[Rfam]
RNA sequence: UAGUAUCGGUGAAGAUGCCGAUUACCCGCAACGGGACGGAAAGACCCCGUGAACCUUUACUGCAACUUAACAUUGGUUGUGGGUAAGUAAUGUGUAGGAUAGGACGGAGGCUUUGAUGCUGCAUCGCCAGGUGUAGUUUAGCCGCCCUUGAAAUACGUCCCUUUGCUUAUCUGUGGCCUAACGGAUUAAUCCGGACAUUGUUUGGUGGGUAGUUUGACUGGGGUGGUCGCCUCCAAAAGAGUAACGGAGGCUUUCAAAGGUUUCCUCAGGACGAUUGGUAACCGUCCGUGGAGUGUAAUGGCACAAGGAAGCUUGACUGUGAGGCCGACAAGCCGACCAGGUACGAAAGUAGGACAUAGUGAUCCGGUGGUUCCGCAUGGAAGGGCCAUCGCUCAAAGGAUAAAAGGUACUCCGGGGAUAACAGGCUGAUCGCUCCCAAGAGCUCAUAUCGACGGAGCGGUUUGGCACCUCGAUGUCGGCUCGUCACAUCCUGGGGCUGGAGAAGGUCCCAAGGGUUGGGCUGUUCGCCCAUUAAAGUGGCACGCGAGCUGGGUUCAGAACGUCGUGAGACAGUUCGGUCCCUAUCUGUUGUGGGCGUA
Numbered sequence: 001u002a003g004u005a006u007c008g009g010u011g012a013a014g015a016u017g018c019c020g021a022u023u024a025c026c027c028g029c030a031a032c033g034g035g036a037c038g039g040a041a042a043g044a045c046c047c048c049g050u051g052a053a054c055c056u057u058u059a060c061u062g063c064a065a066c067u068u069a070a071c072a073u074u075g076g077u078u079g080u081g082g083g084u085a086a087g088u089a090a091u092g093u094g095u096a097g098g099a100u101a102g103g104a105c106g107g108a109g110g111c112u113u114u115g116a117u118g119c120u121g122c123a124u125c126g127c128c129a130g131g132u133g134u135a136g137u138u139u140a141g142c143c144g145c146c147c148u149u150g151a152a153a154u155a156c157g158u159c160c161c162u163u164u165g166c167u168u169a170u171c172u173g174u175g176g177c178c179u180a181a182c183g184g185a186u187u188a189a190u191c192c193g194g195a196c197a198u199u200g201u202u203u204g205g206u207g208g209g210u211a212g213u214u215u216g217a218c219u220g221g222g223g224u225g226g227u228c229g230c231c232u233c234c235a236a237a238a239g240a241g242u243a244a245c246g247g248a249g250g251c252u253u254u255c256a257a258a259g260g261u262u263u264c265c266u267c268a269g270g271a272c273g274a275u276u277g278g279u280a281a282c283c284g285u286c287c288g289u290g291g292a293g294u295g296u297a298a299u300g301g302c303a304c305a306a307g308g309a310a311g312c313u314u315g316a317c318u319g320u321g322a323g324g325c326c327g328a329c330a331a332g333c334c335g336a337c338c339a340g341g342u343a344c345g346a347a348a349g350u351a352g353g354a355c356a357u358a359g360u361g362a363u364c365c366g367g368u369g370g371u372u373c374c375g376c377a378u379g380g381a382a383g384g385g386c387c388a389u390c391g392c393u394c395a396a397a398g399g400a401u402a403a404a405a406g407g408u409a410c411u412c413c414g415g416g417g418a419u420a421a422c423a424g425g426c427u428g429a430u431c432g433c434u435c436c437c438a439a440g441a442g443c444u445c446a447u448a449u450c451g452a453c454g455g456a457g458c459g460g461u462u463u464g465g466c467a468c469c470u471c472g473a474u475g476u477c478g479g480c481u482c483g484u485c486a487c488a489u490c491c492u493g494g495g496g497c498u499g500g501a502g503a504a505g506g507u508c509c510c511a512a513g514g515g516u517u518g519g520g521c522u523g524u525u526c527g528c529c530c531a532u533u534a535a536a537g538u539g540g541c542a543c544g545c546g547a548g549c550u551g552g553g554u555u556c557a558g559a560a561c562g563u564c565g566u567g568a569g570a571c572a573g574u575u576c577g578g579u580c581c582c583u584a585u586c587u588g589u590u591g592u593g594g595g596c597g598u599a
Stems, first nucleotide, its partner, number of pairs: 005022005025595008034587003038582002046416004051412002053408005059213004066205002069202004075178016092161001102160005109143003118137008182193003216228004229251006252397001254354002260312006266292002269287005293302002317340003323334003342351003365391007373384002425466003429463001430460007440450002477552001478550004482544001483541005490515002493510006517531005558576004562571003